[Rfam]
RNA sequence: GGCGUAAAGGGCGUGUAGGCGGCCUAACGUGUCAGGCGUAAAAGGCUGCGGCUCAACCGCAGUUAUGCGUUUGAAACUGUUAGGCUUGAGGGCAGGAGAGGGGAGCGGAAUUCCCGGUGUAGCGGUGAAAUGCGUAGAUAUCGGGAGGAACACCAGUGGCGAAGGCGGCUCUCUGGACUGUACCUGACGCUGAGGCGCGAAAGCGUGGGGAGCAAACAGGAUUAGAUACCCUGGUAGUCCACGCUGUAAACGAUGGGUACUAGGUGUUGGGGGUAUCGACCCCUCCAGUGCCGUAGUAAACACAAUAAGUACCCCGCCUGGGGAGUACGGCCGCAAGGCUGAAACUCAAAGGAAU
Numbered sequence: 001g002g003c004g005u006a007a008a009g010g011g012c013g014u015g016u017a018g019g020c021g022g023c024c025u026a027a028c029g030u031g032u033c034a035g036g037c038g039u040a041a042a043a044g045g046c047u048g049c050g051g052c053u054c055a056a057c058c059g060c061a062g063u064u065a066u067g068c069g070u071u072u073g074a075a076a077c078u079g080u081u082a083g084g085c086u087u088g089a090g091g092g093c094a095g096g097a098g099a100g101g102g103g104a105g106c107g108g109a110a111u112u113c114c115c116g117g118u119g120u121a122g123c124g125g126u127g128a129a130a131u132g133c134g135u136a137g138a139u140a141u142c143g144g145g146a147g148g149a150a151c152a153c154c155a156g157u158g159g160c161g162a163a164g165g166c167g168g169c170u171c172u173c174u175g176g177a178c179u180g181u182a183c184c185u186g187a188c189g190c191u192g193a194g195g196c197g198c199g200a201a202a203g204c205g206u207g208g209g210g211a212g213c214a215a216a217c218a219g220g221a222u223u224a225g226a227u228a229c230c231c232u233g234g235u236a237g238u239c240c241a242c243g244c245u246g247u248a249a250a251c252g253a254u255g256g257g258u259a260c261u262a263g264g265u266g267u268u269g270g271g272g273g274u275a276u277c278g279a280c281c282c283c284u285c286c287a288g289u290g291c292c293g294u295a296g297u298a299a300a301c302a303c304a305a306u307a308a309g310u311a312c313c314c315c316g317c318c319u320g321g322g323g324a325g326u327a328c329g330g331c332c333g334c335a336a337g338g339c340u341g342a343a344a345c346u347c348a349a350a351g352g353a354a355u
Stems, first nucleotide, its partner, number of pairs: 001318003009315001011198004016192001018191003022085007031077001032074009045063007089185003092181004100174007107151001111147008122133003159166002203244006212238002217233004255314006263292011296303002320347003329340004
Rfam assigns this 355-nucleotide part of an RNA from Thermanaeromonas sp. C210 to the family "Bacterial small subunit ribosomal RNA". A search with the family's covariance model found it, with a score of 1594 bits. On this family, see Yusupov et al., Science 2001: "Crystal structure of the ribosome at 5.5 A resolution". The family is grouped with related families in Rfam's "SSU clan".